[Rfam]
RNA sequence: GUAUACGAGAUUUAGAAAAGUCUCUCGUAUACACAUUGGACAUAACAAAAUAACAAUUAGGCCUAGGGAACGAAUCCCUCUCAGCGAAGGCCGAAAAGAGGUUAACCAUACCCUUAGUAGGACUAGCAAACGAGAGGGGUAGCAAUGGUGGUGAGUUCGUUGGAUGGCUGAAGCCCUGAGUACAGGGUAGUCGUCAAUGGUUCGACACCUAUGGAACGUAGGUCUCGAGAUGCCAUGUGGACGAGGGCAUGCCCACAGCACAUCUUAACUUUGGCAGGGGUCGCCAAAGUGAAAGUGGCCUAACCAACCACUACGAACACAGCCUGAUAGGGUGCUGCAGAGGCCCACCUUCUUGCUACUAAAAAUCUCUGCUGUACAUGGCAC
Numbered sequence: 001g002u003a004u005a006c007g008a009g010a011u012u013u014a015g016a017a018a019a020g021u022c023u024c025u026c027g028u029a030u031a032c033a034c035a036u037u038g039g040a041c042a043u044a045a046c047a048a049a050a051u052a053a054c055a056a057u058u059a060g061g062c063c064u065a066g067g068g069a070a071c072g073a074a075u076c077c078c079u080c081u082c083a084g085c086g087a088a089g090g091c092c093g094a095a096a097a098g099a100g101g102u103u104a105a106c107c108a109u110a111c112c113c114u115u116a117g118u119a120g121g122a123c124u125a126g127c128a129a130a131c132g133a134g135a136g137g138g139g140u141a142g143c144a145a146u147g148g149u150g151g152u153g154a155g156u157u158c159g160u161u162g163g164a165u166g167g168c169u170g171a172a173g174c175c176c177u178g179a180g181u182a183c184a185g186g187g188u189a190g191u192c193g194u195c196a197a198u199g200g201u202u203c204g205a206c207a208c209c210u211a212u213g214g215a216a217c218g219u220a221g222g223u224c225u226c227g228a229g230a231u232g233c234c235a236u237g238u239g240g241a242c243g244a245g246g247g248c249a250u251g252c253c254c255a256c257a258g259c260a261c262a263u264c265u266u267a268a269c270u271u272u273g274g275c276a277g278g279g280g281u282c283g284c285c286a287a288a289g290u291g292a293a294a295g296u297g298g299c300c301u302a303a304c305c306a307a308c309c310a311c312u313a314c315g316a317a318c319a320c321a322g323c324c325u326g327a328u329a330g331g332g333u334g335c336u337g338c339a340g341a342g343g344c345c346c347a348c349c350u351u352c353u354u355g356c357u358a359c360u361a362a363a364a365a366u367c368u369c370u371g372c373u374g375u376a377c378a379u380g381g382c383a384c
Base pairs, nucleotide, nucleotide: 001032002031003030004029005028006027007026008025009024077137078136079135080134081133082132084127085126089124090123091121092120096115097114098113100112101111102110138360139359140358141357142356143355144354145351147349148348149347150346151345152321153320155318156317157316158315159314160313162265163264164263165262166261167259168258169257170256173188174187175186176185177184178183191244192243193242194241195240197236198235199234200233201232202228203227204226205225207223208222209221210220211219212218245254246253247252268290269289270288271287272286273285274284275283277281296310297309298308322333323332324331325330335374337372338371339370340369341368342367

The record is a 384-nucleotide sequence from Orthopestivirus bovis, which matches "Pestivirus internal ribosome entry site (IRES) including 5'UTR SLI" in Rfam. Its family is annotated with ribosome binding in the Gene Ontology. The pairing is the family consensus, mapped onto this sequence. Its Rfam clan is "IRES1 clan". Rfam's curators write: This family represents the internal ribosome entry site (IRES) of the the pestiviruses. The pestivirus IRES allows cap and end-independent translation of mRNA in the host cell. The IRES achieves this by mediating the internal initiation of translation by recruiting a ribosomal 43S pre-initiation complex directly to the initiation codon and eliminates the requirement for eIF4F. The classical swine virus UTR described in appears to be longer at the 5' end than other pestivirus UTRs. This family represents the conserved core. Lineage of the source: Viruses > Orthornavirae > Kitrinoviricota > Pestiviridae > Bovine viral diarrhea virus isolates and strains. It is one of the family's seed sequences.